RNA sequence: UCGAGAACCAUUUGAAUCAAGUAUUGUAGUGAUUCAAAUGGUUCUC
Numbered sequence: 001u002c003g004a005g006a007a008c009c010a011u012u013u014g015a016a017u018c019a020a021g022u023a024u025u026g027u028a029g030u031g032a033u034u035c036a037a038a039u040g041g042u043u044c045u046c
Stems, first nucleotide, its partner, number of pairs: 003046017
Rfam assigns this 46-nucleotide sequence from Pimenta dioica to the family "Plastid-ccsA-ndhD-2 3UTR RNA". The literature on the family includes a 2004 paper in Nucleic Acids Res by Zandueta-Criado and Bock, "Surprising features of plastid ndhD transcripts: addition of non-encoded nucleotides and polysome association of mRNAs with an unedited start codon". About the family: Plastid ccsA-ndhD-2 is a non-coding RNA (ncRNA) recognised in plastids. The base pairs follow the family's consensus structure, which was predicted with LocARNA. By type it is a cis-regulatory element. Rfam's curators put it in the seed alignment.